[Rfam]
RNA sequence: UGUUGUCCGGGGCUCUUUUAAUUUUGUACUACUGUGAAAUCAGAGGAGCAGUGCAAUAUUAAAAGGGCAUUGGCUGACA
Numbered sequence: 001u002g003u004u005g006u007c008c009g010g011g012g013c014u015c016u017u018u019u020a021a022u023u024u025u026g027u028a029c030u031a032c033u034g035u036g037a038a039a040u041c042a043g044a045g046g047a048g049c050a051g052u053g054c055a056a057u058a059u060u061a062a063a064a065g066g067g068c069a070u071u072g073g074c075u076g077a078c079a
Stems, first nucleotide, its partner, number of pairs: 001079003005074001007073004012068008022058001024056007
Dot-bracket structure: (((.(.((((.((((((((..(.(((((((...................))))))).)..)))))))).)))))..)))